[Rfam]
RNA sequence: UGAUGACAUUCUCCGGAAUCGCUGUACUGCCUUGAUGAAAGUACACUUGAACCCUUUUCCAUCUGACGACUGAGCCCUUCCAUU
Numbered sequence: 001u002g003a004u005g006a007c008a009u010u011c012u013c014c015g016g017a018a019u020c021g022c023u024g025u026a027c028u029g030c031c032u033u034g035a036u037g038a039a040a041g042u043a044c045a046c047u048u049g050a051a052c053c054c055u056u057u058u059c060c061a062u063c064u065g066a067c068g069a070c071u072g073a074g075c076c077c078u079u080c081c082a083u084u
Stems, first nucleotide, its partner, number of pairs: 002084004
RNA: Small nucleolar RNA MBII-202
Organism: Myotis lucifugus